Shown here is an 81-nucleotide RNA from Solanum tuberosum, a member of the family "Small nucleolar RNA SNORD25".
A reference for the family is Qu et al. (2001), "Identification of 10 novel snoRNA gene clusters from Arabidopsis thaliana", Nucleic Acids Res.
Its Rfam clan is "SNORD25 clan".
The family's RNA type in Rfam is C/D-box small nucleolar RNA.
Its family is annotated with RNA processing and nucleolus in the Gene Ontology.
[Rfam]
RNA sequence: AUUAAUUUUUUACAGUUACAGACCUGUAAUGAUUUGCGAAGAUGAUCGCAAUUAAUUGAACAUCUAAGGGACUGAAUUAAU
Numbered sequence: 001a002u003u004a005a006u007u008u009u010u011u012a013c014a015g016u017u018a019c020a021g022a023c024c025u026g027u028a029a030u031g032a033u034u035u036g037c038g039a040a041g042a043u044g045a046u047c048g049c050a051a052u053u054a055a056u057u058g059a060a061c062a063u064c065u066a067a068g069g070g071a072c073u074g075a076a077u078u079a080a081u
Base pairs, nucleotide, nucleotide: 002080003079004078005077006076